[Rfam]
Nucleotides: 098
Stems, first nucleotide, its partner, number of pairs: 012037002017032006041091003045088003048084006
Number, partner (000 for none) and nucleotide at each position: 001000u002000c003000u004000c005000a006000a007000c008000a009000a010000a011000g012037g013036c014000a015000a016000a017032c018031c019030a020029u021028g022027c023000g024000u025000g026000a027022g028021c029020a030019u031018g032017g033000g034000a035000c036013g037012c038000a039000a040000a041091g042090u043089g044000a045088c046087a047086g048084c049083a050082c051081a052080c053079c054000a055000a056000g057000g058000a059000g060000u061000a062000u063000g064000c065000c066000a067000a068000g069000g070000a071000g072000g073000c074000a075000g076000g077000g078000g079053g080052g081051u082050g083049u084048g085000g086047c087046u088045g089043c090042g091041c092000c093000g094000c095000u096000g097000a098000g

This 98-nucleotide sequence from Vibrio maritimus belongs to the Rfam family "c-di-GMP-I riboswitch aptamer". Lineage of the source: Bacteria > Pseudomonadota > Gammaproteobacteria > Vibrionaceae > Vibrio.